[Rfam]
RNA sequence: ACCCCAUGGGUGCCUGACAUUGAUUCAAAGCGGAGGAACCAUUUUUUGGGGCGUAUCCGGGAAGCCUGAGGAGAGGCAGGAAGGGUCAUCUAUGAGUGGCUCGAUCUCCUAAGAUUCUGGAAGGGCACCUCUCAGCCCUAGCCCGUCAGCUAACUCCGUCGGCCGUGAGGGGAGACUAA
Numbered sequence: 001a002c003c004c005c006a007u008g009g010g011u012g013c014c015u016g017a018c019a020u021u022g023a024u025u026c027a028a029a030g031c032g033g034a035g036g037a038a039c040c041a042u043u044u045u046u047u048g049g050g051g052c053g054u055a056u057c058c059g060g061g062a063a064g065c066c067u068g069a070g071g072a073g074a075g076g077c078a079g080g081a082a083g084g085g086u087c088a089u090c091u092a093u094g095a096g097u098g099g100c101u102c103g104a105u106c107u108c109c110u111a112a113g114a115u116u117c118u119g120g121a122a123g124g125g126c127a128c129c130u131c132u133c134a135g136c137c138c139u140a141g142c143c144c145g146u147c148a149g150c151u152a153a154c155u156c157c158g159u160c161g162g163c164c165g166u167g168a169g170g171g172g173a174g175a176c177u178a179a
Base pairs, nucleotide, nucleotide: 012163013162014161020027030159031158032157033156034155035154040048041047049144050143051142057120058119059118060117061116062115123138124137125136126135
c-di-AMP riboswitch aptamer (ydaO/yuaA leader): a 179-nucleotide sequence from Synechococcales cyanobacterium C42_A2020_086. A search with the family's covariance model found it, with a score of 67 bits. NCBI's taxonomy places the organism under Bacteria, Bacillati, Cyanobacteriota, Cyanophyceae, Synechococcales.